[Rfam]
RNA sequence: CGCAGCCUUGUCAAAUUCAGUGCUUCCUCCUCCAUGGAUGCCACUGGCCAAAAUGGCUGCCACAGUGAAACUGUAGUUCAUGGGCCCCACGCUGCUUCAACAUGUCUGCUGGGGAUAAAUAUGUACUACACACAAAA
Numbered sequence: 001c002g003c004a005g006c007c008u009u010g011u012c013a014a015a016u017u018c019a020g021u022g023c024u025u026c027c028u029c030c031u032c033c034a035u036g037g038a039u040g041c042c043a044c045u046g047g048c049c050a051a052a053a054u055g056g057c058u059g060c061c062a063c064a065g066u067g068a069a070a071c072u073g074u075a076g077u078u079c080a081u082g083g084g085c086c087c088c089a090c091g092c093u094g095c096u097u098c099a100a101c102a103u104g105u106c107u108g109c110u111g112g113g114g115a116u117a118a119a120u121a122u123g124u125a126c127u128a129c130a131c132a133c134a135a136a137a
Stems, first nucleotide, its partner, number of pairs: 002060004018046005023040001025038003073129005078123001085114005

A member of the RNA family "Small nucleolar RNA SNORA5" from Scophthalmus maximus, 137 nucleotides long. Rfam classes the family as an H/ACA-box small nucleolar RNA. Its family is annotated with nucleolus and RNA processing in the Gene Ontology. ACA5 is a member of the H/ACA class of snoRNA that guide the sites of modification of uridines to pseudouridines. Lineage of the source: Eukaryota > Chordata > Vertebrata > Carangaria > Scophthalmus. A search with the family's covariance model found it, with a score of 78 bits. The family's consensus secondary structure was predicted with RNAfold.